[Rfam]
RNA sequence: ACAGAAUUCCCCAGAAGGAACUCCGGGAAAAUAGAAUAAAUAAUUAAGAUAGUAAUAGGAAUGAACUAAUAUGUUUCGAA
Numbered sequence: 001a002c003a004g005a006a007u008u009c010c011c012c013a014g015a016a017g018g019a020a021c022u023c024c025g026g027g028a029a030a031a032u033a034g035a036a037u038a039a040a041u042a043a044u045u046a047a048g049a050u051a052g053u054a055a056u057a058g059g060a061a062u063g064a065a066c067u068a069a070u071a072u073g074u075u076u077c078g079a080a
Stems, first nucleotide, its partner, number of pairs: 007029005013022002063076004
RNA: Plastid-rpl20 3UTR RNA